This 59-nucleotide RNA from Nematostella vectensis belongs to the Rfam family "mir-9412 microRNA precursor family". Taxonomically the source falls in Nematostella (Eukaryota, Metazoa, Cnidaria, Anthozoa).
RNA sequence: GAUGAAUGCUAAAGACUGGAAGACAUUUAAAAACCAUGUCUUGAAGAGAACAGUAGGGA
Numbered sequence: 001g002a003u004g005a006a007u008g009c010u011a012a013a014g015a016c017u018g019g020a021a022g023a024c025a026u027u028u029a030a031a032a033a034c035c036a037u038g039u040c041u042u043g044a045a046g047a048g049a050a051c052a053g054u055a056g057g058g059a
Base pairs, nucleotide, nucleotide: 007055008054009053010052016046017045020042021041022040023039024038025037026036